[Rfam]
RNA sequence: UAUUAGGUUGGCGCAAAAGUAAUUGCAGUCUUUGCCAUUAUUUUUAAUGGUAAAAACUGCAAUUACUUUUGCGCCAACCUAAUA
Numbered sequence: 001u002a003u004u005a006g007g008u009u010g011g012c013g014c015a016a017a018a019g020u021a022a023u024u025g026c027a028g029u030c031u032u033u034g035c036c037a038u039u040a041u042u043u044u045u046a047a048u049g050g051u052a053a054a055a056a057c058u059g060c061a062a063u064u065a066c067u068u069u070u071g072c073g074c075c076a077a078c079c080u081a082a083u084a
Stems, first nucleotide, its partner, number of pairs: 001084029031054010
RNA: mir-548 microRNA precursor family